The record is a 238-nucleotide RNA sequence from Oryza sativa, which matches "mir-172 microRNA precursor family" in Rfam. The literature on the family includes a 2004 paper in Mol Cell by Jones-Rhoades and Bartel, "Computational Identification of Plant MicroRNAs and Their Targets, Including a Stress-Induced miRNA". It scores 70 bits against the family's covariance model. The family has 11 seed sequences and 2,076 matches in Rfam 15.1. The organism belongs to Oryza sativa, within Eukaryota.

Nucleotides: 238
Stems, first nucleotide, its partner, number of pairs: 010229002013226018032207005
Number, partner (000 for none) and nucleotide at each position: 001000g002000u003000g004000a005000u006000u007000u008000c009000u010229g011228a012000c013226g014225u015224g016223g017222c018221a019220u020219c021218a022217u023216c024215a025214a026213g027212a028211u029210u030209c031000a032207c033206a034205c035204a036203u037000u038000a039000c040000a041000u042000u043000g044000c045000a046000u047000g048000c049000a050000u051000g052000c053000a054000u055000a056000u057000g058000u059000c060000u061000a062000u063000g064000c065000a066000u067000c068000u069000u070000u071000g072000a073000g074000c075000u076000u077000g078000u079000u080000g081000u082000u083000c084000u085000g086000a087000u088000c089000u090000c091000a092000a093000c094000a095000a096000c097000c098000u099000a100000g101000c102000u103000a104000g105000c106000u107000a108000a109000u110000a111000u112000u113000u114000c115000u116000c117000u118000c119000c120000u121000g122000g123000c124000c125000c126000u127000g128000a129000c130000c131000u132000g133000c134000a135000u136000g137000a138000u139000g140000c141000a142000u143000g144000g145000u146000u147000g148000c149000a150000c151000g152000c153000a154000u155000g156000g157000a158000g159000a160000g161000a162000g163000a164000a165000g166000a167000g168000a169000g170000a171000g172000a173000u174000c175000g176000a177000a178000g179000c180000u181000a182000a183000u184000u185000a186000a187000a188000c189000g190000c191000a192000u193000g194000u195000g196000u197000a198000u199000a200000u201000a202000u203036g204035u205034g206033u207032g208000g209030g210029a211028a212027u213026c214025u215024u216023g217022a218021u219020g220019a221018u222017g223016c224015u225014g226013c227000a228011u229010c230000g231000g232000a233000a234000a235000u236000u237000a238000a